transfer-messenger RNA: a 365-nucleotide RNA sequence from Lacticaseibacillus sharpeae.
The family is grouped with related families in Rfam's "tRNA clan".
Rfam's curators write: Bacterial tmRNA, also known as 10Sa RNA or SsrA, is named for its dual tRNA and mRNA-like properties.
Lineage of the source: Bacteria > Bacillati > Bacillota > Bacilli > Lacticaseibacillus sharpeae.
A reference for the family is Williams and Bartel (1996), "Phylogenetic analysis of tmRNA secondary structure", RNA.
It is annotated as a non-coding RNA gene.
It scores 154 bits against the family's covariance model.
[Rfam]
RNA sequence: GGGGAUGUAAUGGUCUCGACAUUGGUUUUCGCGCAUGUGGCGCACUCCGGAGGGCUCGGCUCCGUCAUCAACGGCACAGUUUAUUAACUGCAAAGAACAACAAUUCUUACGCUCUCGCUGCCUAGUAAGUAGCCUAGCGUGAUCUGUCCGGGUUCGUCCAAGGCUCGGAGCCAGGUCUCAAAUUAUUGGACUACGGUUAACGUUGCGACCCGAGGCGUUGACAAGAGAUAGUGGGUGCGCAUUUGGGGGUUAGCCAGGCUGACCGGCGCUCCCCAUUUGUUUAAUCCAAGUAGGUCAACUAUGAGUGUAGACCUGCGUGUGGGCGGGGCUGAUGGACAGGGGUUCGAUUCCCCUCAUCUCCAUUU
Numbered sequence: 001g002g003g004g005a006u007g008u009a010a011u012g013g014u015c016u017c018g019a020c021a022u023u024g025g026u027u028u029u030c031g032c033g034c035a036u037g038u039g040g041c042g043c044a045c046u047c048c049g050g051a052g053g054g055c056u057c058g059g060c061u062c063c064g065u066c067a068u069c070a071a072c073g074g075c076a077c078a079g080u081u082u083a084u085u086a087a088c089u090g091c092a093a094a095g096a097a098c099a100a101c102a103a104u105u106c107u108u109a110c111g112c113u114c115u116c117g118c119u120g121c122c123u124a125g126u127a128a129g130u131a132g133c134c135u136a137g138c139g140u141g142a143u144c145u146g147u148c149c150g151g152g153u154u155c156g157u158c159c160a161a162g163g164c165u166c167g168g169a170g171c172c173a174g175g176u177c178u179c180a181a182a183u184u185a186u187u188g189g190a191c192u193a194c195g196g197u198u199a200a201c202g203u204u205g206c207g208a209c210c211c212g213a214g215g216c217g218u219u220g221a222c223a224a225g226a227g228a229u230a231g232u233g234g235g236u237g238c239g240c241a242u243u244u245g246g247g248g249g250u251u252a253g254c255c256a257g258g259c260u261g262a263c264c265g266g267c268g269c270u271c272c273c274c275a276u277u278u279g280u281u282u283a284a285u286c287c288a289a290g291u292a293g294g295u296c297a298a299c300u301a302u303g304a305g306u307g308u309a310g311a312c313c314u315g316c317g318u319g320u321g322g323g324c325g326g327g328g329c330u331g332a333u334g335g336a337c338a339g340g341g342g343u344u345c346g347a348u349u350c351c352c353c354u355c356a357u358c359u360c361c362a363u364u365u
Stems, first nucleotide, its partner, number of pairs: 001361007020334009030323001032321009043307005048064005054077001057074001114137002117133005141177006147169008156191006196222009207236001209234002239280003244275005253267003257299001338354005